Overview
Rfam assigns this 138-nucleotide RNA from Chelonia mydas to the family "Small nucleolar RNA SNORA5". Rfam describes the family as follows. ACA5 is a member of the H/ACA class of snoRNA that guide the sites of modification of uridines to pseudouridines. Its family is annotated with nucleolus and RNA processing in the Gene Ontology. Lineage of the source: Eukaryota > Bilateria > Deuterostomia > Cryptodira > Chelonia. The family's consensus secondary structure was predicted with RNAfold. By type it is an H/ACA-box small nucleolar RNA. A search with the family's covariance model found it, with a score of 74 bits.
[Rfam]
RNA sequence: UGCAGCCCUGUCAAAUUCAGUCCUCGCCUCUGUCCUGGUGGGUACCGACCCGGUCGGCUGCCACAGCAACAUCUGUAGUUCAUGGGCCCCGCAUCUCUCUCACUGUGUGCUGGGAAUAAAAAUACACUACAGCCACCC
Numbered sequence: 001u002g003c004a005g006c007c008c009u010g011u012c013a014a015a016u017u018c019a020g021u022c023c024u025c026g027c028c029u030c031u032g033u034c035c036u037g038g039u040g041g042g043u044a045c046c047g048a049c050c051c052g053g054u055c056g057g058c059u060g061c062c063a064c065a066g067c068a069a070c071a072u073c074u075g076u077a078g079u080u081c082a083u084g085g086g087c088c089c090c091g092c093a094u095c096u097c098u099c100u101c102a103c104u105g106u107g108u109g110c111u112g113g114g115a116a117u118a119a120a121a122a123u124a125c126a127c128u129a130c131a132g133c134c135a136c137c138c
Base pairs, nucleotide, nucleotide: 002061003060004059005058018047020045021044023042024041025040026039027038028037075130076129077128078127079126080124087114088113089112091110
Dot-bracket structure: .((((............(.((.((((((........)))))).)).)..........)))).............((((((......(((.(..................).))).........).)))))........